[Rfam]
RNA sequence: CCAUGCAUUCGUAAGUGAUCAUGGUCUGCCCAUGUCCUGGUCACUGGUAGUGCAGGCAGAAGAAAUGUGGGAAGGGUUGCCCUGUGUUGGAGGGUCAACAGCCUCACCUUCCUGUUCCGGGACUUUCCCCUA
Number, nucleotide and partner (000 for none) at each position: 001c000002c056003a000004u054005g053006c052007a051008u050009u049010c000011g000012u000013a000014a045015g044016u043017g042018a041019u040020c039021a038022u000023g037024g036025u000026c034027u000028g000029c000030c000031c000032a000033u000034g026035u000036c024037c023038u021039g020040g019041u018042c017043a016044c015045u014046g000047g000048u000049a009050g008051u007052g006053c005054a004055g000056g002057c000058a000059g000060a000061a000062g000063a000064a000065a000066u000067g130068u000069g129070g128071g127072a126073a125074g124075g123076g000077u000078u000079g000080c000081c000082c000083u000084g000085u000086g116087u000088u114089g113090g112091a110092g109093g108094g107095u000096c000097a000098a000099c000100a000101g000102c000103c000104u000105c000106a000107c094108c093109u092110u091111c000112c090113u089114g088115u000116u086117c000118c000119g000120g000121g000122a000123c075124u074125u073126u072127c071128c070129c069130c067131u000132a000

Small nucleolar RNA SNORA71: a 132-nucleotide RNA sequence from Microcebus murinus. The members of this family belong to the H/ACA class of snoRNAs which bind a number of proteins (including dyskerin, Gar1p and Nop10p) to form snoRNP complexes. It is annotated as an H/ACA-box small nucleolar RNA. The family's consensus secondary structure was predicted with PFOLD. The source organism's lineage runs through Eukaryota, Vertebrata, Amniota, Eutheria and Microcebus. Gene Ontology terms of the family: nucleolus and RNA processing. For this family Rfam cites "The family of box ACA small nucleolar RNAs is defined by an evolutionarily conserved secondary structure and ubiquitous sequence elements essential for RNA accumulation" (Ganot et al., Genes Dev, 1997).